mir-727 microRNA precursor family: a 91-nucleotide RNA sequence from Danio rerio. The family has 5 seed sequences and 159 matches in Rfam 15.1. The family's consensus secondary structure was predicted with RNAalifold. The sequence is in the family's curated seed alignment. The organism belongs to Danio, within Eukaryota.
RNA sequence: CUGUAUGUCAUUUUCAGUCUUCAAUUCCUCCCAGCCCGUACCCAUCGAAACUGUGAGUUGAGGCGAGUUGAAGACUUAAAGUGCUGUACAG
Numbered sequence: 001c002u003g004u005a006u007g008u009c010a011u012u013u014u015c016a017g018u019c020u021u022c023a024a025u026u027c028c029u030c031c032c033a034g035c036c037c038g039u040a041c042c043c044a045u046c047g048a049a050a051c052u053g054u055g056a057g058u059u060g061a062g063g064c065g066a067g068u069u070g071a072a073g074a075c076u077u078a079a080a081g082u083g084c085u086g087u088a089c090a091g
Stems, first nucleotide, its partner, number of pairs: 001091007009083006016076012030063002032060004036047001038045002